[Rfam]
RNA sequence: GCGGGGCUGUCUGGUGCGUGAGAGUAUGUAUUUCCGGGCCCAUACGACUCCCUAGGGAGCUGUCCCUGCUUGGGUCCCUGGACCCGAGCACACGGCGCCCACCUACUUUGUAGGUGUCCCGGGAUCGAAACUCCACGGCCGAGGUGGCUCCGCA
Numbered sequence: 001g002c003g004g005g006g007c008u009g010u011c012u013g014g015u016g017c018g019u020g021a022g023a024g025u026a027u028g029u030a031u032u033u034c035c036g037g038g039c040c041c042a043u044a045c046g047a048c049u050c051c052c053u054a055g056g057g058a059g060c061u062g063u064c065c066c067u068g069c070u071u072g073g074g075u076c077c078c079u080g081g082a083c084c085c086g087a088g089c090a091c092a093c094g095g096c097g098c099c100c101a102c103c104u105a106c107u108u109u110g111u112a113g114g115u116g117u118c119c120c121g122g123g124a125u126c127g128a129a130a131c132u133c134c135a136c137g138g139c140c141g142a143g144g145u146g147g148c149u150c151c152g153c154a
Base pairs, nucleotide, nucleotide: 002152003151004150005149006148007147008146009145010144011143012141013140014139015138017137018136019135032124033123034122035121036119037118038117039114040113055100056099057098059096060095061094062093063092068089069088070087071086072085073084074083075082076081
The family of this 154-nucleotide RNA sequence from Allobosea sp. RAC05 is "6S / SsrS RNA". About the family: E. coli 6S RNA was the first non coding RNA to be sequenced, but its function was unknown until recently. It consists of 184 nucleotides that fold into an extended hairpin structure with a large single-stranded internal bulge. The 6S RNA specifically associates with RNA polymerase holoenzyme containing the sigma70 specificity factor. This interaction represses expression from a sigma70-dependent promoter during stationary phase. 6S RNA homologs have recently been identified in most bacterial genomes. Many Gram-positive species have two copies of 6S RNA. In Bacillus subtilis, both copies appear to interact with RNA polymerase holoenzyme containing the housekeeping sigma factor and be expressed during different stages of growth. In many proteobacteria, 6S RNA may be processed from a transcript encoding homologs of the E. coli YgfA protein which is a putative 5-formyltetrahydrofolate cycloligase activity. By type it is a non-coding RNA gene. A search with the family's covariance model found it, with a score of 70 bits. The organism belongs to Allobosea, within Bacteria.